[Rfam]
RNA sequence: GGUGCAAAUGAAGACAAGCCUAGACAGGGACAUCAGAUCUCUACGGAGUAUGUUGAUUUGUCUAAAAUGGGAAUCUCUCUGAUGCACU
Numbered sequence: 001g002g003u004g005c006a007a008a009u010g011a012a013g014a015c016a017a018g019c020c021u022a023g024a025c026a027g028g029g030a031c032a033u034c035a036g037a038u039c040u041c042u043a044c045g046g047a048g049u050a051u052g053u054u055g056a057u058u059u060g061u062c063u064a065a066a067a068u069g070g071g072a073a074u075c076u077c078u079c080u081g082a083u084g085c086a087c088u
Stems, first nucleotide, its partner, number of pairs: 002087005